The family of this 75-nucleotide RNA sequence from Klebsiella pneumoniae is "tpke11". On this family, see Righetti et al., Proc Natl Acad Sci U S A 2016: "Temperature-responsive in vitro RNA structurome of Yersinia pseudotuberculosis". In Yersinia located in ICR upstream dnaJ (chaperone)gene. Has temperature responsive RNA structure. Rfam classes the family as a small RNA. Rfam's curators put it in the seed alignment.
RNA sequence: AACGGGUAAAACACUGGCACGGGCGAAGAGGUUUCCUCUCCGCCCGUGCACGCAUGUUAAGGGGCUGAAAAACAC
Numbered sequence: 001a002a003c004g005g006g007u008a009a010a011a012c013a014c015u016g017g018c019a020c021g022g023g024c025g026a027a028g029a030g031g032u033u034u035c036c037u038c039u040c041c042g043c044c045c046g047u048g049c050a051c052g053c054a055u056g057u058u059a060a061g062g063g064g065c066u067g068a069a070a071a072a073c074a075c
Stems, first nucleotide, its partner, number of pairs: 003016003017049009027039004